[Rfam]
The family of this 164-nucleotide RNA sequence from Lunatimonas lonarensis is "Group II catalytic intron D1-D4-2". The literature on the family includes a 2003 paper in Crit Rev Biochem Mol Biol by Lehmann and Schmidt, "Group II introns: structure and catalytic versatility of large natural ribozymes". Group II introns are found in rRNA, tRNA and mRNA of organelles in fungi, plants and protists, and also in mRNA in bacteria.

RNA sequence: GUGGGCAGGCUCUCCGAUGGCGGCUUGCGGGCUUGCCCUGACACAGUCAGCGGCUUGCCCUGAUGUAGUCAGGGAGCAGCCAUCAAACCACCUUACGCUGCAUAUCUGGGAAACCAAUAUGUGGUGAGAGGUAAGGAAAAACGGGGACUUUGAUCCCUGUAGGC
Numbered sequence: 001g002u003g004g005g006c007a008g009g010c011u012c013u014c015c016g017a018u019g020g021c022g023g024c025u026u027g028c029g030g031g032c033u034u035g036c037c038c039u040g041a042c043a044c045a046g047u048c049a050g051c052g053g054c055u056u057g058c059c060c061u062g063a064u065g066u067a068g069u070c071a072g073g074g075a076g077c078a079g080c081c082a083u084c085a086a087a088c089c090a091c092c093u094u095a096c097g098c099u100g101c102a103u104a105u106c107u108g109g110g111a112a113a114c115c116a117a118u119a120u121g122u123g124g125u126g127a128g129a130g131g132u133a134a135g136g137a138a139a140a141a142c143g144g145g146g147a148c149u150u151u152g153a154u155c156c157c158u159g160u161a162g163g164c
Base pairs, nucleotide, nucleotide: 001015003013004012005011016084017083018082019081020080021079023077024076025075026074089163091136092135093134094133095132096131097125098124100122101121102120104118105117107116108115141160142159143158144157145156146155
The organism belongs to Lunatimonas, within Bacteria. Gene Ontology term of the family: Group II intron splicing. The match comes from Rfam's covariance-model search (66 bits).